Shown here is a 130-nucleotide RNA from Pseudomonas oryzae, a member of the family "SAH (S-adenosyl-L-homocysteine) riboswitch aptamer". The family's consensus secondary structure is taken from published work. A search with the family's covariance model found it, with a score of 54 bits.
RNA sequence: CCGUCCGAGGGGCGCUGCAGCAGGCUCUGCGCCGAUCCGUGCAUCGGCCGCCUGUCAGGCUCGGACGGCUGUCGCUCCGGCUGUCCGCUUCCUGCGGCGCCGCUUCUGACUUCAACGGCGCCCAUUCGCA
Numbered sequence: 001c002c003g004u005c006c007g008a009g010g011g012g013c014g015c016u017g018c019a020g021c022a023g024g025c026u027c028u029g030c031g032c033c034g035a036u037c038c039g040u041g042c043a044u045c046g047g048c049c050g051c052c053u054g055u056c057a058g059g060c061u062c063g064g065a066c067g068g069c070u071g072u073c074g075c076u077c078c079g080g081c082u083g084u085c086c087g088c089u090u091c092c093u094g095c096g097g098c099g100c101c102g103c104u105u106c107u108g109a110c111u112u113c114a115a116c117g118g119c120g121c122c123c124a125u126u127c128g129c130a
Base pairs, nucleotide, nucleotide: 002067003066004065005064006063007062008061021054022053023052024051025050